[Rfam]
RNA sequence: UACAACACAGGCGAUGGUGCUCCGCCUAAUUGAACCGCCCUAAAAAGCUGAUGGCGCCUACUCAAAU
Dot-bracket structure: .........[[[[..((((((.]]]]..........((........))....)))))).........
Numbered sequence: 001u002a003c004a005a006c007a008c009a010g011g012c013g014a015u016g017g018u019g020c021u022c023c024g025c026c027u028a029a030u031u032g033a034a035c036c037g038c039c040c041u042a043a044a045a046a047g048c049u050g051a052u053g054g055c056g057c058c059u060a061c062u063c064a065a066a067u
Stems, first nucleotide, its partner, number of pairs: 010026004016058006037048002